Record summary
A member of the RNA family "Caenorhabditis snoRNA ceN67", 127 nucleotides long. A search with the family's covariance model found it, with a score of 86 bits.
RNA sequence: ACUCCCAUUAUCUUUCCAUCAGCUGAUUCACAAGUCUCUGUUGGCUUAGAAUGGGGGAAAGUGAAAGGAAGAAACUGAAAAUGAUCUUUCACUGUCUAGAGUUGGUCACUUCAAUUCUCCCACAUUU
Dot-bracket structure: ..(((((((......(((.(((..(((......))).))).))).....)))))))..........((..(....(((...(((((...(.(......).)..)))))..)))..)..)).......